[Rfam]
L17-Actino-Proteobacteria ribosomal protein leader: a 56-nucleotide RNA sequence. Rfam's curators put it in the seed alignment. It is annotated as a cis-regulatory leader.
RNA sequence: GGUCGGGGCGGCUGCCCCGGCUUCCACUAGCUCCGGUACCUGGUACGGCCGGGGAG
Numbered sequence: 001g002g003u004c005g006g007g008g009c010g011g012c013u014g015c016c017c018c019g020g021c022u023u024c025c026a027c028u029a030g031c032u033c034c035g036g037u038a039c040c041u042g043g044u045a046c047g048g049c050c051g052g053g054g055a056g
Stems, first nucleotide, its partner, number of pairs: 001022009027056002031054007